[Rfam]
RNA: MIR6152 microRNA precursor family
Organism: Nicotiana sylvestris
RNA sequence: UGGAUAGAUUAUUGUAUUCGACUUUAUUCACUGAGUGAAAUAGGGGAAUAUACUGUUUUUAAACAGAAAAUGAAUCAAUUAACAUAAUAGACUCCU
Numbered sequence: 001u002g003g004a005u006a007g008a009u010u011a012u013u014g015u016a017u018u019c020g021a022c023u024u025u026a027u028u029c030a031c032u033g034a035g036u037g038a039a040a041u042a043g044g045g046g047a048a049u050a051u052a053c054u055g056u057u058u059u060u061a062a063a064c065a066g067a068a069a070a071u072g073a074a075u076c077a078a079u080u081a082a083c084a085u086a087a088u089a090g091a092c093u094c095c096u
Stems, first nucleotide, its partner, number of pairs: 002095003009090007017082002020080002023077001026075005035064002037059007